[Rfam]
RNA sequence: GCCUCCCACAAAGGCGUGCCCGUACCCUGCACUGUGUGGGCACGUAAGAACCGGAGGCAAAGCACUGAAAGUAACGAGUAACGGGACAGCUGCUCCCUGGGCUGCUCCUGGAUCGUCACUUCCUACAC
Numbered sequence: 001g002c003c004u005c006c007c008a009c010a011a012a013g014g015c016g017u018g019c020c021c022g023u024a025c026c027c028u029g030c031a032c033u034g035u036g037u038g039g040g041c042a043c044g045u046a047a048g049a050a051c052c053g054g055a056g057g058c059a060a061a062g063c064a065c066u067g068a069a070a071g072u073a074a075c076g077a078g079u080a081a082c083g084g085g086a087c088a089g090c091u092g093c094u095c096c097c098u099g100g101g102c103u104g105c106u107c108c109u110g111g112a113u114c115g116u117c118a119c120u121u122c123c124u125a126c127a128c
Stems, first nucleotide, its partner, number of pairs: 002057005015044007025029001069121003088106003092102003
A member of the RNA family "Small nucleolar RNA SNORA38" from Terrapene triunguis, 128 nucleotides long.
The organism belongs to Terrapene, within Eukaryota.
It scores 63 bits against the family's covariance model.
Rfam links the family to the GO terms Cajal body, nucleolus and RNA processing.
The family's consensus secondary structure was predicted with RNAfold.
From the family's description: ACA38 is a member of the H/ACA class of snoRNA that guide the sites of modification of uridines to pseudouridines.